[Rfam]
RNA sequence: AAUGGCAGGUGCUGGCGUUCGCGCCGCUAACCUGGAAACGUUUUUACAGGCAGGGGUUGAAGAGCUUCACAGCUCGGCAGGCAGAUGGUUGCCGUCACCCAUGCGCUAUCGCAACACGGGCUUGUCGAUGUCGACGGAUGCAGGCGCGGAUGAAUAUUCCCGCUAUGGCGUGGAUGGCGAGUCGGUUGCAGAGAUGAAGGCGAUAAUCGAAAGGCAUUGUCGCUAAAACAGUUUUUACCGCGCAUCAUGUCGCCCAAUAUGAUGCUUGUUUGUACCAGGCCCCUGCAAUUUCAACAGGGGUCUUUUUUU
Numbered sequence: 001a002a003u004g005g006c007a008g009g010u011g012c013u014g015g016c017g018u019u020c021g022c023g024c025c026g027c028u029a030a031c032c033u034g035g036a037a038a039c040g041u042u043u044u045u046a047c048a049g050g051c052a053g054g055g056g057u058u059g060a061a062g063a064g065c066u067u068c069a070c071a072g073c074u075c076g077g078c079a080g081g082c083a084g085a086u087g088g089u090u091g092c093c094g095u096c097a098c099c100c101a102u103g104c105g106c107u108a109u110c111g112c113a114a115c116a117c118g119g120g121c122u123u124g125u126c127g128a129u130g131u132c133g134a135c136g137g138a139u140g141c142a143g144g145c146g147c148g149g150a151u152g153a154a155u156a157u158u159c160c161c162g163c164u165a166u167g168g169c170g171u172g173g174a175u176g177g178c179g180a181g182u183c184g185g186u187u188g189c190a191g192a193g194a195u196g197a198a199g200g201c202g203a204u205a206a207u208c209g210a211a212a213g214g215c216a217u218u219g220u221c222g223c224u225a226a227a228a229c230a231g232u233u234u235u236u237a238c239c240g241c242g243c244a245u246c247a248u249g250u251c252g253c254c255c256a257a258u259a260u261g262a263u264g265c266u267u268g269u270u271u272g273u274a275c276c277a278g279g280c281c282c283c284u285g286c287a288a289u290u291u292c293a294a295c296a297g298g299g300g301u302c303u304u305u306u307u308u309u
Base pairs, nucleotide, nucleotide: 003277004276005275009271011269012268014266015265016040017039018038022035024034026032043083045081050078051077054075055074056073057072058069059068060067085129086128088126089124091122093120095118102114103112104111105110132140133139144163145162146161148159149158150157166264167263169261170260171259172258177255179253181251183249184248185246187244188243189242193241195240196239199236200235202233203232204231207228213224214223215222278302279301280300281299282298283297284296285295
The family of this 309-nucleotide RNA is "MicL sRNA". A reference for the family is Guo et al. (2014), "MicL, a new sigmaE-dependent sRNA, combats envelope stress by repressing synthesis of Lpp, the major outer membrane lipoprotein", Genes Dev. Rfam's curators write: mRNA-interfering complementary RNA regulator of Lpp. Transcription factor sigma E dependant sRNA. Together with MicA and RybB it allows sigma E to repress the synthesis of all abundant outer membrane proteins in response to stress. By type it is a small RNA. Gene Ontology term of the family: translation repressor activity. The family's consensus secondary structure was predicted with RNAfold.